[Rfam]
RNA sequence: AGAGGCCCUCCGCAGCCGGGGUGGAAUGCUUGCCUCAUCGCCACAGUGGCAAAGCAAGCAUUCCACCAAGCUGCUCACACUUCCUGC
Number, nucleotide and partner (000 for none) at each position: 001a000002g000003a000004g084005g083006c000007c000008c000009u000010c000011c000012g074013c073014a072015g071016c070017c000018g000019g000020g067021g066022u065023g064024g063025a062026a061027u060028g059029c058030u057031u056032g055033c054034c000035u000036c000037a000038u049039c048040g047041c046042c000043a000044c000045a000046g041047u040048g039049g038050c000051a000052a000053a000054g033055c032056a031057a030058g029059c028060a027061u026062u025063c024064c023065a022066c021067c020068a000069a000070g016071c015072u014073g013074c012075u000076c000077a000078c000079a000080c000081u000082u000083c005084c004085u000086g000087c000
The family of this 87-nucleotide RNA sequence from Myotis myotis is "mir-9195 microRNA precursor family". Rfam links the family to the GO terms RISC complex and miRNA-mediated post-transcriptional gene silencing. The family has 3 seed sequences and 438 matches in Rfam 15.1.